[Rfam]
RNA sequence: UUGACGGCGUGCCCGGCACUCCACAAAAUGCCGCGCACAGCAUGUAUAAGGAGGAUGUAUUUAUCCCCGGGCUCGGGGUGCGGCAGUGUGGAGACCUGUCGCAAGGCGGCGCGCCCCACAGCGGGCGGCCGUGAGGGUAUUCAGGCGGAGGCCGGAUAUCCGGAGCCGGAAAGCAUGGCU
Numbered sequence: 001u002u003g004a005c006g007g008c009g010u011g012c013c014c015g016g017c018a019c020u021c022c023a024c025a026a027a028a029u030g031c032c033g034c035g036c037a038c039a040g041c042a043u044g045u046a047u048a049a050g051g052a053g054g055a056u057g058u059a060u061u062u063a064u065c066c067c068c069g070g071g072c073u074c075g076g077g078g079u080g081c082g083g084c085a086g087u088g089u090g091g092a093g094a095c096c097u098g099u100c101g102c103a104a105g106g107c108g109g110c111g112c113g114c115c116c117c118a119c120a121g122c123g124g125g126c127g128g129c130c131g132u133g134a135g136g137g138u139a140u141u142c143a144g145g146c147g148g149a150g151g152c153c154g155g156a157u158a159u160c161c162g163g164a165g166c167c168g169g170a171a172a173g174c175a176u177g178g179c180u
Stems, first nucleotide, its partner, number of pairs: 009038004014033005064078004068169001070167005079103008088095002106132005112127003135161008144153003